Source information:
A member of the RNA family "tRNA" from Lachnospiraceae bacterium oral taxon 500, 71 nucleotides long. The organism belongs to Lachnospiraceae bacterium oral taxon 500, within Bacteria. Rfam classes the family as a transfer RNA. The match comes from Rfam's covariance-model search (62 bits).

[Rfam]
RNA sequence: GGCGACAUAGCCAAGCGGUAAGGCGUGGGUCUGCAACACCCUGAUCACCAGUUCAAAUCUGGUUGUCGCCU
Number, nucleotide and partner (000 for none) at each position: 001g070002g069003c068004g067005a066006c065007a064008u000009a000010g024011c023012c022013a000014a000015g000016c000017g000018g000019u000020a000021a000022g012023g011024c010025g000026u000027g041028g040029g039030u038031c000032u000033g000034c000035a000036a000037c000038a030039c029040c028041c027042u000043g000044a000045u000046c000047a063048c062049c061050a060051g059052u000053u000054c000055a000056a000057a000058u000059c051060u050061g049062g048063u047064u007065g006066u005067c004068g003069c002070c001071u000